Rfam assigns this 83-nucleotide RNA sequence from Cyprinus carpio to the family "mir-17 microRNA precursor family". Rfam's curators write: This family represents the microRNA (miRNA) precursor mir-17, family, which includes mir-20, mir-91, and mir-103. miRNAs are transcribed as ~70nt precursors (modelled here) and subsequently processed by the Dicer enzyme to give a ~22nt product. In this case the mature sequence comes from the 3' arm of the precursor. The extents of the hairpin precursors are not generally known and are estimated based on hairpin prediction. Lineage of the source: Eukaryota > Eumetazoa > Teleostomi > Otomorpha > Cyprinus carpio.
RNA sequence: CCAGCAGUAUUAAAGUGCUUAUAGUGCAGGUAGUUUAUUAAAAUGCGUAUCUACUGCAAUGUGAGCACUUCAAGUACUUCUAG
Numbered sequence: 001c002c003a004g005c006a007g008u009a010u011u012a013a014a015g016u017g018c019u020u021a022u023a024g025u026g027c028a029g030g031u032a033g034u035u036u037a038u039u040a041a042a043a044u045g046c047g048u049a050u051c052u053a054c055u056g057c058a059a060u061g062u063g064a065g066c067a068c069u070u071c072a073a074g075u076a077c078u079u080c081u082a083g
Stems, first nucleotide, its partner, number of pairs: 004080001006078002009075003013070011025058003029055005